[Rfam]
RNA: mir-44 microRNA precursor family
RNA sequence: AACGUGCCACGCUGGAUGUGCUCGUUAGUCAUAAUAACCUCAUUUAGUAAGGCUUAUGACUAGAGACACAUUCAGCUUGGCGCCGAA
Numbered sequence: 001a002a003c004g005u006g007c008c009a010c011g012c013u014g015g016a017u018g019u020g021c022u023c024g025u026u027a028g029u030c031a032u033a034a035u036a037a038c039c040u041c042a043u044u045u046a047g048u049a050a051g052g053c054u055u056a057u058g059a060c061u062a063g064a065g066a067c068a069c070a071u072u073c074a075g076c077u078u079g080g081c082g083c084c085g086a087a
Stems, first nucleotide, its partner, number of pairs: 005082005012075009022066002027061007